[Rfam]
A member of the RNA family "Bacterial RNase P class A" from Propioniciclava flava, 400 nucleotides long. It scores 277 bits against the family's covariance model. It is annotated as a ribozyme.
RNA sequence: UGAGUCGGCCGGGUGAUCGCGGCGCGUCAGCGUCGAGGAAAGUCCGGACUCCACAGGGCAAGGUGGUGGGUAACGCCCACCCGGGGUGACCCGCGGGACAGUGCCACAGAGAACAGACCGCCGCCCCCGCGAGGGGGAGGUAAGGGUGAAACGGUGGUGUAAGAGACCACCAGCGUCCUCGGUGACGGGGAUGGCUCGGUAAACCCCACCUGGAGCAAGACCAAGAAGGGCUUCGGCCCGCGGAUGCCGUUCGAGCGCUGCCCGUGCGAGGCAUCCGGGUAGGUUGCACGGCAUCGCCGGGGGUUCCCCGGUAUACCGGAGGCCGUCGGCAACGGCGGUCACAGAUGGAUGAUCACCGCCCGUUUGGGCACAGAAUCCGGCUUACAGGCCGACUCGUCCC
Numbered sequence: 001u002g003a004g005u006c007g008g009c010c011g012g013g014u015g016a017u018c019g020c021g022g023c024g025c026g027u028c029a030g031c032g033u034c035g036a037g038g039a040a041a042g043u044c045c046g047g048a049c050u051c052c053a054c055a056g057g058g059c060a061a062g063g064u065g066g067u068g069g070g071u072a073a074c075g076c077c078c079a080c081c082c083g084g085g086g087u088g089a090c091c092c093g094c095g096g097g098a099c100a101g102u103g104c105c106a107c108a109g110a111g112a113a114c115a116g117a118c119c120g121c122c123g124c125c126c127c128c129g130c131g132a133g134g135g136g137g138a139g140g141u142a143a144g145g146g147u148g149a150a151a152c153g154g155u156g157g158u159g160u161a162a163g164a165g166a167c168c169a170c171c172a173g174c175g176u177c178c179u180c181g182g183u184g185a186c187g188g189g190g191a192u193g194g195c196u197c198g199g200u201a202a203a204c205c206c207c208a209c210c211u212g213g214a215g216c217a218a219g220a221c222c223a224a225g226a227a228g229g230g231c232u233u234c235g236g237c238c239c240g241c242g243g244a245u246g247c248c249g250u251u252c253g254a255g256c257g258c259u260g261c262c263c264g265u266g267c268g269a270g271g272c273a274u275c276c277g278g279g280u281a282g283g284u285u286g287c288a289c290g291g292c293a294u295c296g297c298c299g300g301g302g303g304u305u306c307c308c309c310g311g312u313a314u315a316c317c318g319g320a321g322g323c324c325g326u327c328g329g330c331a332a333c334g335g336c337g338g339u340c341a342c343a344g345a346u347g348g349a350u351g352a353u354c355a356c357c358g359c360c361c362g363u364u365u366g367g368g369c370a371c372a373g374a375a376u377c378c379g380g381c382u383u384a385c386a387g388g389c390c391g392a393c394u395c396g397u398c399c400c
Base pairs, nucleotide, nucleotide: 001396002395003394004393005392006391007390008389009388010387011385012357013356014355015354016353017352018351020035021034022033023032024031025030040383041382042381044380045379046378047377048376049215050214051213052212056263057262058261059260061211062210063209064208065207066080067079068078069077070076081095082093083092084091085090096206097205101204102203103200104199105198118145119144120141121140122139124137125136126135127134128133153171154170155169156168157167158166173195174193175192176191177190178189179188180187181186219285220284221283222282229276230275232273234271255267256266257265258264293339294338295337296336297335298334299333